The record is a 174-nucleotide sequence from Pluralibacter gergoviae, which matches "SraG RNA" in Rfam. The family's RNA type in Rfam is small RNA. About the family: This RNA was discovered in E. coli during a large scale screen. Evidence was found for specific cleavage of this RNA. The organism belongs to Pluralibacter, within Bacteria. The match comes from Rfam's covariance-model search (102 bits). Gene Ontology terms of the family: mRNA binding and sRNA-mediated gene silencing.

[Rfam]
RNA sequence: UCUUCACUGCAUCCUCGCGACUAAUGAGAGGCCUGCGCCAGAGUGCCCAGGACUCUCAUUAGCCGCGCGAAACGCUGCACUGAAGAGUGUUAAUUACAGCAACACAAACAAUACAUUACUUUCUGUUUAAUUGCUGCCGUCAGUGUGAAAAAAGGGGCCAUCAGGCCCCUCUUU
Numbered sequence: 001u002c003u004u005c006a007c008u009g010c011a012u013c014c015u016c017g018c019g020a021c022u023a024a025u026g027a028g029a030g031g032c033c034u035g036c037g038c039c040a041g042a043g044u045g046c047c048c049a050g051g052a053c054u055c056u057c058a059u060u061a062g063c064c065g066c067g068c069g070a071a072a073c074g075c076u077g078c079a080c081u082g083a084a085g086a087g088u089g090u091u092a093a094u095u096a097c098a099g100c101a102a103c104a105c106a107a108a109c110a111a112u113a114c115a116u117u118a119c120u121u122u123c124u125g126u127u128u129a130a131u132u133g134c135u136g137c138c139g140u141c142a143g144u145g146u147g148a149a150a151a152a153a154g155g156g157g158c159c160a161u162c163a164g165g166c167c168c169c170u171c172u173u174u
Stems, first nucleotide, its partner, number of pairs: 001086006009078003016069004021062007092128002154169006